Shown here is a 162-nucleotide RNA sequence from Malus baccata, a member of the family "U1 spliceosomal RNA". Pairs were carried over by alignment from the consensus structure, which is taken from published work.
RNA sequence: AUACUUACCUGGACAAGGUCGAUGGGCGAUCAAGAAGGCCCAUGGCCUAGAGUUGGUGACCUCCAUUGCACGUAGGAGGGGUGCCACUCUAUGGUCUUCCUAAGAGGGAGAAUCAAUGUCGUAAUUUGUGACAGCGGGGGCCUGCGUUCGCGCGGCCCCUGA
Number, nucleotide and partner (000 for none) at each position: 001a000002u000003a000004c000005u000006u000007a000008c000009c000010u000011g000012g120013a119014c118015a117016a048017g047018g046019u045020c044021g043022a000023u042024g041025g040026g039027c038028g000029a000030u000031c000032a000033a000034g000035a000036a000037g000038g027039c026040c025041c024042a023043u021044g020045g019046c018047c017048u016049a090050g089051a088052g087053u000054u086055g000056g084057u083058g082059a000060c080061c079062u078063c076064c075065a000066u000067u000068g000069c000070a000071c000072g000073u000074a000075g064076g063077a000078g062079g061080g060081g000082u058083g057084c056085c000086a054087c052088u051089c050090u049091a000092u115093g114094g113095u111096c110097u109098u000099c107100c106101u000102a000103a000104g000105a000106g100107g099108g000109a097110g096111a095112a000113u094114c093115a092116a000117u015118g014119u013120c012121g000122u000123a000124a000125u000126u000127u000128g000129u000130g000131a000132c000133a000134g000135c161136g160137g159138g158139g157140g000141c000142c000143u154144g153145c152146g151147u000148u000149c000150g000151c146152g145153c144154g143155g000156c000157c139158c138159c137160u136161g135162a000